[Rfam]
Source information: A member of the RNA family "FMN riboswitch aptamer (RFN element)" from Photobacterium gaetbulicola, 173 nucleotides long. The organism belongs to Photobacterium gaetbulicola, within Bacteria.
RNA sequence: AGGAAUUCUCAGGGCGGGGUGAAAUUCCCCACCGGCGGUAGUCCUUCAACAGGAAAGCCCGCGAGCGCUUAUUUAUUGAUUUUCAAUUGAUAAGGUCAGCAGAUCUGGUUCAGUCAGGCAAUGCCUUACCACUCCAGAGCCGACGGUUAUAGUCCGGAUGAAAGAGGAUCUCA
Numbered sequence: 001a002g003g004a005a006u007u008c009u010c011a012g013g014g015c016g017g018g019g020u021g022a023a024a025u026u027c028c029c030c031a032c033c034g035g036c037g038g039u040a041g042u043c044c045u046u047c048a049a050c051a052g053g054a055a056a057g058c059c060c061g062c063g064a065g066c067g068c069u070u071a072u073u074u075a076u077u078g079a080u081u082u083u084c085a086a087u088u089g090a091u092a093a094g095g096u097c098a099g100c101a102g103a104u105c106u107g108g109u110u111c112a113g114u115c116a117g118g119c120a121a122u123g124c125c126u127u128a129c130c131a132c133u134c135c136a137g138a139g140c141c142g143a144c145g146g147u148u149a150u151a152g153u154c155c156g157g158a159u160g161a162a163a164g165a166g167g168a169u170c171u172c173a
Stems, first nucleotide, its partner, number of pairs: 003171001005169006017029003031153002033142002035062004057140002065100002104138005144156003
The match comes from Rfam's covariance-model search (102 bits).
Gene Ontology term of the family: FMN binding.